[Rfam]
RNA sequence: AAAAAGGCCCUUUUCAGGGCCACUCAAUGAGUCGAAAUAAAGAGCU
Numbered sequence: 001a002a003a004a005a006g007g008c009c010c011u012u013u014u015c016a017g018g019g020c021c022a023c024u025c026a027a028u029g030a031g032u033c034g035a036a037a038u039a040a041a042g043a044g045c046u
Stems, first nucleotide, its partner, number of pairs: 006021006
Dot-bracket structure: .....((((((....)))))).........................
Notes: This 46-nucleotide RNA sequence from Kryptolebias marmoratus belongs to the Rfam family "Histone 3' UTR stem-loop". A search with the family's covariance model found it, with a score of 34 bits. The family's consensus secondary structure is taken from published work. Gene Ontology term of the family: mRNA 3'-end processing by stem-loop binding and cleavage. On this family, see Tan et al., Science 2013: "Structure of histone mRNA stem-loop, human stem-loop binding protein, and 3'hExo ternary complex".